[Rfam]
RNA: Small nucleolar RNA R160
Organism: Digitaria exilis
RNA sequence: AGCGAUAUGAGGAGAGUGAAACAGCCUAAACUUUUCAUGUGGAUGACACAUAUAUGGUCUUCAAAGUUCUCUGAUCGCU
Numbered sequence: 001a002g003c004g005a006u007a008u009g010a011g012g013a014g015a016g017u018g019a020a021a022c023a024g025c026c027u028a029a030a031c032u033u034u035u036c037a038u039g040u041g042g043a044u045g046a047c048a049c050a051u052a053u054a055u056g057g058u059c060u061u062c063a064a065a066g067u068u069c070u071c072u073g074a075u076c077g078c079u
Base pairs, nucleotide, nucleotide: 001079002078003077004076005075